[Rfam]
Nucleotides: 113
Stems, first nucleotide, its partner, number of pairs: 007100003011062004017032005039056005067092004073086004
Number, partner (000 for none) and nucleotide at each position: 001000c002000a003000c004000g005000u006000c007100a008099a009098c010000c011062a012061c013060g014059g015000g016000a017032g018031u019030c020029c021028g022000g023000u024000g025000u026000g027000c028021c029020g030019g031018g032017c033000u034000g035000a036000g037000a038000g039056g040055a041054a042053g043052c044000g045000a046000a047000u048000c049000c050000a051000c052043g053042c054041u055040u056039c057000g058000a059014c060013c061012g062011u063000c064000g065000a066000a067092c068091c069090u070089g071000a072000u073086c074085u075084g076083g077000g078000u079000c080000a081000u082000g083076c084075c085074a086073g087000c088000g089070c090069a091068g092067g093000a094000a095000g096000g097000a098009g099008u100007u101000u102000c103000g104000a105000u106000g107000c108000a109000c110000a111000c112000g113000u

Shown here is a 113-nucleotide sequence from Microbacterium caowuchunii, a member of the family "TPP riboswitch aptamer (THI element)". The source organism's lineage runs through Bacteria, Bacillati, Actinomycetes, Micrococcales and Microbacterium.